The family of this 78-nucleotide RNA sequence from Triticum aestivum is "Small nucleolar RNA Z199". The family has 17 seed sequences and 953 matches in Rfam 15.1. For this family Rfam cites "The high diversity of snoRNAs in plants: identification and comparative study of 120 snoRNA genes from Oryza sativa" (Chen et al., Nucleic Acids Res, 2003). The family's consensus secondary structure was predicted with PFOLD. Lineage of the source: Eukaryota > Streptophyta > Streptophytina > Embryophyta > Triticum. The match comes from Rfam's covariance-model search (64 bits).
RNA sequence: GGUUCAAGUGAUGAUGAGAAACUGCAACAAUAUGACGGGAGUUACACUCCUAUGAUUCGUAGAUAAAGUCUGAUGAUU
Numbered sequence: 001g002g003u004u005c006a007a008g009u010g011a012u013g014a015u016g017a018g019a020a021a022c023u024g025c026a027a028c029a030a031u032a033u034g035a036c037g038g039g040a041g042u043u044a045c046a047c048u049c050c051u052a053u054g055a056u057u058c059g060u061a062g063a064u065a066a067a068g069u070c071u072g073a074u075g076a077u078u
Base pairs, nucleotide, nucleotide: 001078002077004076005075006074037051038050039049040048041047